[Rfam]
RNA sequence: AAUAAGCACUGGGAGUGUUGGAAAGGCCAACUGAGAUUAAGACCCGAAUAUGUCUUUGAUCCCUAAUCACCUGAUCUAGUUCAUACUAGCGUAGGAAAGUGUUUUAUAUUUAGC
Numbered sequence: 001a002a003u004a005a006g007c008a009c010u011g012g013g014a015g016u017g018u019u020g021g022a023a024a025g026g027c028c029a030a031c032u033g034a035g036a037u038u039a040a041g042a043c044c045c046g047a048a049u050a051u052g053u054c055u056u057u058g059a060u061c062c063c064u065a066a067u068c069a070c071c072u073g074a075u076c077u078a079g080u081u082c083a084u085a086c087u088a089g090c091g092u093a094g095g096a097a098a099g100u101g102u103u104u105u106a107u108a109u110u111u112a113g114c
Stems, first nucleotide, its partner, number of pairs: 006102005011064003016058001017031005039056004070095004076089004
TPP riboswitch aptamer (THI element): a 114-nucleotide RNA from Haloplasma contractile. A reference for the family is Rodionov et al. (2002), "Comparative genomics of thiamin biosynthesis in procaryotes. New genes and regulatory mechanisms", J Biol Chem. Taxonomically the source falls in Haloplasma contractile (Bacteria, Mycoplasmatota, Mollicutes, Haloplasmataceae).